[Rfam]
RNA sequence: CUAGACAGUACACCAUCGGUCCAUAUAUGCCCCGUAAUACGGUCGGGGUGUUUCUACCAGGGAGCCGUAAACCUCCUGACUAUGGGCUGAGAAACACAUCAG
Numbered sequence: 001c002u003a004g005a006c007a008g009u010a011c012a013c014c015a016u017c018g019g020u021c022c023a024u025a026u027a028u029g030c031c032c033c034g035u036a037a038u039a040c041g042g043u044c045g046g047g048g049u050g051u052u053u054c055u056a057c058c059a060g061g062g063a064g065c066c067g068u069a070a071a072c073c074u075c076c077u078g079a080c081u082a083u084g085g086g087c088u089g090a091g092a093a094a095c096a097c098a099u100c101a102g
Stems, first nucleotide, its partner, number of pairs: 018088008029049006058078005064072001
Overview: Shown here is a 102-nucleotide sequence from Gracilinema caldarium, a member of the family "Purine riboswitch aptamer". About the family: Riboswitches are metabolite binding domains within certain messenger RNAs that serve as precision sensors for their corresponding targets. Allosteric rearrangement of mRNA structure is mediated by ligand binding, and this results in modulation of gene expression. Lineage of the source: Bacteria > Spirochaetota > Breznakiellaceae > Gracilinema > Gracilinema caldarium. A search with the family's covariance model found it, with a score of 75 bits.